[Rfam]
RNA sequence: UGGUCAUUACCAAGGCUUCUAGAAUGCAGUUUCUCAUUUGCUGUGGACAUGACCAUAGACAAAUUCCCAUGAGGUUCUUCAUAUGCUGUUGGGAACAUGG
Numbered sequence: 001u002g003g004u005c006a007u008u009a010c011c012a013a014g015g016c017u018u019c020u021a022g023a024a025u026g027c028a029g030u031u032u033c034u035c036a037u038u039u040g041c042u043g044u045g046g047a048c049a050u051g052a053c054c055a056u057a058g059a060c061a062a063a064u065u066c067c068c069a070u071g072a073g074g075u076u077c078u079u080c081a082u083a084u085g086c087u088g089u090u091g092g093g094a095a096c097a098u099g100g
Stems, first nucleotide, its partner, number of pairs: 003053005010046003026041004066093004073086001076083001
Annotation
This 100-nucleotide RNA from Mus musculus belongs to the Rfam family "Small nucleolar RNA SNORA32". Its family is annotated with RNA processing and nucleolus in the Gene Ontology. The organism belongs to Mus, within Eukaryota. ACA32 is a member of the H/ACA class of snoRNA that guide the sites of modification of uridines to pseudouridines. Pairs were carried over by alignment from the consensus structure, which was predicted with RNAfold. The family has 9 seed sequences and 615 matches in Rfam 15.1.